[Rfam]
RNA sequence: UUGGGGUGAGGUAGUAGGUUGUAUAGUUUUAGGGUCAUACCCAAGCUGUCAGAUGACUAUACAACUUACUGUCUUUCCUGA
Number, nucleotide and partner (000 for none) at each position: 001u081002u080003g079004g078005g077006g076007u000008g075009a074010g073011g072012u071013a070014g069015u068016a067017g066018g065019u064020u063021g062022u061023a060024u059025a058026g057027u056028u000029u000030u000031a000032g042033g041034g040035u039036c000037a000038u000039a035040c034041c033042c032043a000044a000045g000046c000047u000048g000049u000050c000051a000052g000053a000054u000055g000056a027057c026058u025059a024060u023061a022062c021063a020064a019065c018066u017067u016068a015069c014070u013071g012072u011073c010074u009075u008076u006077c005078c004079u003080g002081a001

Shown here is an 81-nucleotide sequence from Cynoglossus semilaevis, a member of the family "let-7 microRNA precursor family".
It scores 72 bits against the family's covariance model.
The family is grouped with related families in Rfam's "let-7 microRNA precursor clan".
Taxonomically the source falls in Cynoglossus (Eukaryota, Bilateria, Clupeocephala, Euacanthomorphacea).
Rfam links the family to the GO terms RISC complex and miRNA-mediated post-transcriptional gene silencing.
This family represents the microRNAs (miRNA) let-7 and mir-98. let-7 was identified from a study of developmental timing in C. elegans, and was later shown to be part of a much larger class of non-coding RNAs termed miRNAs.
A reference for the family is Rougvie (2001), "Control of developmental timing in animals", Nat Rev Genet.